[Rfam]
RNA: Small nucleolar RNA SNORD113/SNORD114 family
RNA sequence: UGGACCUAUGAUGAUGACUGGUGGCGUAUGAGUCAUUGACGGUGAAUACAGGUCUGGAAGUCUGAGGUCCAA
Number, nucleotide and partner (000 for none) at each position: 001u000002g070003g069004a068005c067006c066007u000008a000009u000010g000011a000012u000013g000014a000015u000016g000017a000018c000019u000020g000021g000022u000023g000024g000025c000026g000027u000028a000029u000030g000031a000032g000033u000034c000035a000036u000037u000038g000039a000040c000041g000042g000043u000044g000045a000046a000047u000048a000049c000050a000051g000052g000053u000054c000055u000056g000057g000058a000059a000060g000061u000062c000063u000064g000065a000066g006067g005068u004069c003070c002071a000072a000